A member of the RNA family "Small nucleolar RNA SNORD45" from Jacana jacana, 71 nucleotides long. On this family, see Galardi et al., Mol Cell Biol 2002: "Purified box C/D snoRNPs are able to reproduce site-specific 2'-O-methylation of target RNA in vitro". The family has 11 seed sequences and 1,629 matches in Rfam 15.1. The match comes from Rfam's covariance-model search (43 bits). The base pairs follow the family's consensus structure, which was predicted with PFOLD.
[Rfam]
RNA sequence: GGUCCGUGAUGAGUUUUGGCAUGUAUUAUCUGAGUAUAAAUAUGAAUGGUAUCAGUUUACUCUGAGACCUG
Numbered sequence: 001g002g003u004c005c006g007u008g009a010u011g012a013g014u015u016u017u018g019g020c021a022u023g024u025a026u027u028a029u030c031u032g033a034g035u036a037u038a039a040a041u042a043u044g045a046a047u048g049g050u051a052u053c054a055g056u057u058u059a060c061u062c063u064g065a066g067a068c069c070u071g
Stems, first nucleotide, its partner, number of pairs: 001069004